This 114-nucleotide RNA from Clostridium botulinum belongs to the Rfam family "EGFOA RNA".
[Rfam]
RNA sequence: UAUUUCCUAGACACUUUUUUAAGUUAAGUGGUGUGACUGUCCUAGUUGGGGGCAUGAGUAAGUUAGAUGGUACUAUACUUGAUAAUACUAGACCUAGGCGAGUUUGAACUCAUG
Numbered sequence: 001u002a003u004u005u006c007c008u009a010g011a012c013a014c015u016u017u018u019u020u021a022a023g024u025u026a027a028g029u030g031g032u033g034u035g036a037c038u039g040u041c042c043u044a045g046u047u048g049g050g051g052g053c054a055u056g057a058g059u060a061a062g063u064u065a066g067a068u069g070g071u072a073c074u075a076u077a078c079u080u081g082a083u084a085a086u087a088c089u090a091g092a093c094c095u096a097g098g099c100g101a102g103u104u105u106g107a108a109c110u111c112a113u114g
Base pairs, nucleotide, nucleotide: 006098007097008096009095010094039093040092042091043090044089045088053114054113055112056111057110058109059108064075065074066073077103078102079101080100081099
Record summary
It is annotated as a small RNA. The base pairs follow the family's consensus structure, which is taken from published work. Taxonomically the source falls in Clostridium botulinum D (Bacteria, Bacillota, Clostridia, Eubacteriales).